[Rfam]
RNA sequence: AGAAGUUGCCUGGUAUAAGCCGCUAGAUUAAUAAGGCUAGCUGAUAAGAGGAUACCUCAUAAGGGUAUAUUUCCUACCUCGAACUCAGUCGCAAGAAUAUGGAUUAGCUACCUAUAUUCUUAGUGAACGUUAGUAACGUAGCUAUUUGAUUUUCAGUAUAGGAAACUGAGAAUUAAGUAGUUGAAUAACUCUCU
Numbered sequence: 001a002g003a004a005g006u007u008g009c010c011u012g013g014u015a016u017a018a019g020c021c022g023c024u025a026g027a028u029u030a031a032u033a034a035g036g037c038u039a040g041c042u043g044a045u046a047a048g049a050g051g052a053u054a055c056c057u058c059a060u061a062a063g064g065g066u067a068u069a070u071u072u073c074c075u076a077c078c079u080c081g082a083a084c085u086c087a088g089u090c091g092c093a094a095g096a097a098u099a100u101g102g103a104u105u106a107g108c109u110a111c112c113u114a115u116a117u118u119c120u121u122a123g124u125g126a127a128c129g130u131u132a133g134u135a136a137c138g139u140a141g142c143u144a145u146u147u148g149a150u151u152u153u154c155a156g157u158a159u160a161g162g163a164a165a166c167u168g169a170g171a172a173u174u175a176a177g178u179a180g181u182u183g184a185a186u187a188a189c190u191c192u193c194u
Stems, first nucleotide, its partner, number of pairs: 010026004041088004048080004052068005071164006089126004093121003097117006127139004142180004147175009
RAGATH-14 RNA: a 194-nucleotide RNA sequence.
Rfam classes the family as a small RNA.
The family's consensus secondary structure is taken from published work.